This 82-nucleotide RNA from Lacipirellula parvula belongs to the Rfam family "tRNA". The source organism's lineage runs through Bacteria, Pseudomonadati, Pirellulales, Lacipirellulaceae and Lacipirellula. The base pairs follow the family's consensus structure, which is taken from published work.
[Rfam]
RNA sequence: GACCGAGUGGUGGAAUUGGCAGACACACGACGCUCAGAACGUCGUGCCGUAAGGCGUGGGAGUUCGAAUCUCCCCUUGGUCA
Numbered sequence: 001g002a003c004c005g006a007g008u009g010g011u012g013g014a015a016u017u018g019g020c021a022g023a024c025a026c027a028c029g030a031c032g033c034u035c036a037g038a039a040c041g042u043c044g045u046g047c048c049g050u051a052a053g054g055c056g057u058g059g060g061a062g063u064u065c066g067a068a069u070c071u072c073c074c075c076u077u078g079g080u081c082a
Stems, first nucleotide, its partner, number of pairs: 001081007010026003028044005058074005